Source information
The record is a 61-nucleotide sequence from Zingiber officinale, which matches "Plastid-psbN 5UTR RNA" in Rfam. The family's consensus secondary structure was predicted with LocARNA. Rfam 15.1 lists 2,345 matches to the family in 397 species.
RNA sequence: AGCGAUCCCCAUUAGUGGUGUAGUCCCCCAGCUUGAAGCUACUUUACCAUAUUCUGAAUUU
Dot-bracket structure: ................((.(((((..(.......)..))))).))................
Numbered sequence: 001a002g003c004g005a006u007c008c009c010c011a012u013u014a015g016u017g018g019u020g021u022a023g024u025c026c027c028c029c030a031g032c033u034u035g036a037a038g039c040u041a042c043u044u045u046a047c048c049a050u051a052u053u054c055u056g057a058a059u060u061u
Stems, first nucleotide, its partner, number of pairs: 017045002020042005027035001
Plastid psbN is a non-coding RNA (ncRNA) recognised in plastids. It was reported as a conserved 11 stem-loop in the prime untranslated region (5UTR) of psbN genes. It has been reported that the motif is retained in a subset of mature transcripts in barley, which can suggests a possible role in transcript alternative 5 prime processing.